[Rfam]
RNA sequence: AUUUAGCUUCGUUAGGUGAGGCUUCUGCAUAGACAAAUGCCACUGCCCGGAAAUGUCGAGAGACGCUAACGGGUUAACAGGUUCUACCGGCUUAAGGUUAUACCUAAUGUGGCUGGGACAAGUGCCCUAGCUAUGUAUGUGCCAAAGCUUGCACGAGUGGAGAAGGCC
Numbered sequence: 001a002u003u004u005a006g007c008u009u010c011g012u013u014a015g016g017u018g019a020g021g022c023u024u025c026u027g028c029a030u031a032g033a034c035a036a037a038u039g040c041c042a043c044u045g046c047c048c049g050g051a052a053a054u055g056u057c058g059a060g061a062g063a064c065g066c067u068a069a070c071g072g073g074u075u076a077a078c079a080g081g082u083u084c085u086a087c088c089g090g091c092u093u094a095a096g097g098u099u100a101u102a103c104c105u106a107a108u109g110u111g112g113c114u115g116g117g118a119c120a121a122g123u124g125c126c127c128u129a130g131c132u133a134u135g136u137a138u139g140u141g142c143c144a145a146a147g148c149u150u151g152c153a154c155g156a157g158u159g160g161a162g163a164a165g166g167c168c
Base pairs, nucleotide, nucleotide: 007162008161009160010159011154012153013095015149016148017147020143021142022141025139026137027136028135029134030133031132032131039113040112041111042110043109045074046073047072048071049070054065055064056063057062080104081103082102086098087097088096115127116126117125
This 168-nucleotide RNA from Desulfotomaculum nigrificans belongs to the Rfam family "M-box riboswitch aptamer (ykoK leader)".
Gene Ontology terms of the family: response to magnesium ion and regulation of gene expression.
The source organism's lineage runs through Bacteria, Bacillati, Clostridia, Eubacteriales and Desulfotomaculum nigrificans.
The base pairs follow the family's consensus structure.